[Rfam]
Bacterial RNase P class A: a 378-nucleotide RNA from Actinobacillus delphinicola. Pairs were carried over by alignment from the consensus structure, which is taken from published work.

RNA sequence: AGAGUUGGUUAGACAAUCGCUGGUUUAUUGAAGUCCUUAAUUGUUUUUAACAAACAAGUGAGACAAAUAAACGAGAGGAAAGUCCGAGCUACACAGGGCAGAGUGCCAGAUAACGUCUGGGGGGCGUGAGCCCACGACCAGUGCAACAGAGAGCAGACCGCCUUCUUUUGAAGGUAAGGGUGAAAGGGUGCGGUAAGAGCGCACCGUGCCACAGGUAACUGAUGGCAGCAUGGUAAACUCCACUCGUAGCAAGACCAAAUAGGUUCGCAAUUGCUGGCCCGGCAAGCGAACGGGUAGGUUGCUUGAGCGUUAGUGUGAAUUAACGCCUAGAGGAAUGAUUGUCCACGACAGAACUCGGCUUAUCGACCAACUCGCAUU
Numbered sequence: 001a002g003a004g005u006u007g008g009u010u011a012g013a014c015a016a017u018c019g020c021u022g023g024u025u026u027a028u029u030g031a032a033g034u035c036c037u038u039a040a041u042u043g044u045u046u047u048u049a050a051c052a053a054a055c056a057a058g059u060g061a062g063a064c065a066a067a068u069a070a071a072c073g074a075g076a077g078g079a080a081a082g083u084c085c086g087a088g089c090u091a092c093a094c095a096g097g098g099c100a101g102a103g104u105g106c107c108a109g110a111u112a113a114c115g116u117c118u119g120g121g122g123g124g125c126g127u128g129a130g131c132c133c134a135c136g137a138c139c140a141g142u143g144c145a146a147c148a149g150a151g152a153g154c155a156g157a158c159c160g161c162c163u164u165c166u167u168u169u170g171a172a173g174g175u176a177a178g179g180g181u182g183a184a185a186g187g188g189u190g191c192g193g194u195a196a197g198a199g200c201g202c203a204c205c206g207u208g209c210c211a212c213a214g215g216u217a218a219c220u221g222a223u224g225g226c227a228g229c230a231u232g233g234u235a236a237a238c239u240c241c242a243c244u245c246g247u248a249g250c251a252a253g254a255c256c257a258a259a260u261a262g263g264u265u266c267g268c269a270a271u272u273g274c275u276g277g278c279c280c281g282g283c284a285a286g287c288g289a290a291c292g293g294g295u296a297g298g299u300u301g302c303u304u305g306a307g308c309g310u311u312a313g314u315g316u317g318a319a320u321u322a323a324c325g326c327c328u329a330g331a332g333g334a335a336u337g338a339u340u341g342u343c344c345a346c347g348a349c350a351g352a353a354c355u356c357g358g359c360u361u362a363u364c365g366a367c368c369a370a371c372u373c374g375c376a377u378u
Stems, first nucleotide, its partner, number of pairs: 002373009011363001012343007020075002023072006080361003084358005089249004096280004101245005106120005121135001122133004136240002141238002143234002158179002160175006187205006206229001207227005212221003253300004263291006271285005307326008

Description
Lineage of the source: Bacteria > Gammaproteobacteria > Pasteurellales > Pasteurellaceae > Actinobacillus. A search with the family's covariance model found it, with a score of 331 bits. The family's RNA type in Rfam is ribozyme.